[Rfam]
RNA sequence: AAUUAACUAUCUAUUACAUAAGUCAAAUAUAUUUUUAACAAUUUGAGCUUGCUACAGCAAGAAAGUCUAACCUAUUCCAGCAUUCUCCCCACUGUGAGAUAGGCUGUUAUAUAGACUGAAACAGU
Numbered sequence: 001a002a003u004u005a006a007c008u009a010u011c012u013a014u015u016a017c018a019u020a021a022g023u024c025a026a027a028u029a030u031a032u033u034u035u036u037a038a039c040a041a042u043u044u045g046a047g048c049u050u051g052c053u054a055c056a057g058c059a060a061g062a063a064a065g066u067c068u069a070a071c072c073u074a075u076u077c078c079a080g081c082a083u084u085c086u087c088c089c090c091a092c093u094g095u096g097a098g099a100u101a102g103g104c105u106g107u108u109a110u111a112u113a114g115a116c117u118g119a120a121a122c123a124g125u
Stems, first nucleotide, its partner, number of pairs: 010046002012040001014038002018034001020032001022030001064117006073111003078106004086099002089096001
Shown here is a 125-nucleotide RNA sequence from Octodon degus, a member of the family "Small nucleolar RNA SNORA28". Clan: SNORA28 clan. The family's RNA type in Rfam is H/ACA-box small nucleolar RNA. Rfam links the family to the GO terms nucleolus and RNA processing. The family has 26 seed sequences and 922 matches in Rfam 15.1. A search with the family's covariance model found it, with a score of 96 bits.